[Rfam]
RNA: mir-3689 microRNA precursor family
RNA sequence: GGGAGUGUGCUCCCGUGCUCCCUGGGGGGUGUGCUCCCGUGCUCCCUGGGGGGUGUGACCCUGCACUCCCU
Numbered sequence: 001g002g003g004a005g006u007g008u009g010c011u012c013c014c015g016u017g018c019u020c021c022c023u024g025g026g027g028g029g030u031g032u033g034c035u036c037c038c039g040u041g042c043u044c045c046c047u048g049g050g051g052g053g054u055g056u057g058a059c060c061c062u063g064c065a066c067u068c069c070c071u
Base pairs, nucleotide, nucleotide: 001070002069003068004067005066014057015056016055017054019052020051021050022049023048024047025046026045027044028043030041031040032039033038